[Rfam]
RNA sequence: GAAAUUCUCCAGCCUGACCAGGUGGUGAGUUGCGGUGUUGUCUACCGUAGAGGAUUUCUCUCGUGCCUUGUUACGGGUUUGAAGGGCGAGCCUAUCUUCGGAGGGUAAAUUGUAACUUUCGCCAAACAGGACUAUG
Numbered sequence: 001g002a003a004a005u006u007c008u009c010c011a012g013c014c015u016g017a018c019c020a021g022g023u024g025g026u027g028a029g030u031u032g033c034g035g036u037g038u039u040g041u042c043u044a045c046c047g048u049a050g051a052g053g054a055u056u057u058c059u060c061u062c063g064u065g066c067c068u069u070g071u072u073a074c075g076g077g078u079u080u081g082a083a084g085g086g087c088g089a090g091c092c093u094a095u096c097u098u099c100g101g102a103g104g105g106u107a108a109a110u111u112g113u114a115a116c117u118u119u120c121g122c123c124a125a126a127c128a129g130g131a132c133u134a135u136g
Stems, first nucleotide, its partner, number of pairs: 001058009012023004031049005060077005085123005091105003095102002
Rfam assigns this 136-nucleotide RNA sequence from Tombusvirus bulgariaense to the family "Tombusvirus 5' UTR". From the family's description: Tomato bushy stunt virus is the prototype member of the Tombusviridae family. In addition to viral proteins p33 and the RNA-dependent RNA polymerase p92, and unknown host factors, RNA signals within the UTRs are necessary for genome replication. 2 RNA domains in the 5' UTR have been reported, a 5' T-shaped domain (TSD) followed by a stem-loop (SL5) and a downstream domain (DSD). These domains are combined into a single family here. Reference proposes that TSD-DSD interactions are involved in the mediation of viral RNA replication. It is annotated as a cis-regulatory element. The sequence is in the family's curated seed alignment. Gene Ontology term of the family: viral RNA genome replication.